[Rfam]
RNA sequence: GGGGCUGAGACAGUUAAGACUUGCAGUGAUGUUUAGGGCAAUGAUGACAUGAACAUCACUUUAAGUCUGUGCUGACUCUU
Dot-bracket structure: ................(((((((..((((((((((..............))))))))))..)))))))............
Numbered sequence: 001g002g003g004g005c006u007g008a009g010a011c012a013g014u015u016a017a018g019a020c021u022u023g024c025a026g027u028g029a030u031g032u033u034u035a036g037g038g039c040a041a042u043g044a045u046g047a048c049a050u051g052a053a054c055a056u057c058a059c060u061u062u063a064a065g066u067c068u069g070u071g072c073u074g075a076c077u078c079u080u
Stems, first nucleotide, its partner, number of pairs: 017068007026059010
Rfam assigns this 80-nucleotide sequence from Oryzias latipes to the family "mir-499 microRNA precursor family". Pairs were carried over by alignment from the consensus structure, which was predicted with RNAalifold. Lineage of the source: Eukaryota > Bilateria > Euteleostomi > Actinopterygii > Oryzias. The sequence is in the family's curated seed alignment.